[Rfam]
RNA sequence: AGCAAAAGACAAACAUAGACGGGGAACAGGCAGAGCAUGGAUGGAGCUAUCAACAGCAUAGAUUUGAGAUUGAGAGGAGCAACCUGUUGUGGCUCUACUCAUGCACUGCCUCUUCCCUGGCUGUGCCUCUCUCUUUCUUU
Numbered sequence: 001a002g003c004a005a006a007a008g009a010c011a012a013a014c015a016u017a018g019a020c021g022g023g024g025a026a027c028a029g030g031c032a033g034a035g036c037a038u039g040g041a042u043g044g045a046g047c048u049a050u051c052a053a054c055a056g057c058a059u060a061g062a063u064u065u066g067a068g069a070u071u072g073a074g075a076g077g078a079g080c081a082a083c084c085u086g087u088u089g090u091g092g093c094u095c096u097a098c099u100c101a102u103g104c105a106c107u108g109c110c111u112c113u114u115c116c117c118u119g120g121c122u123g124u125g126c127c128u129c130u131c132u133c134u135u136u137c138u139u140u
Stems, first nucleotide, its partner, number of pairs: 016123003020119007028111006035104006044095007
RNA: MIR408 microRNA precursor family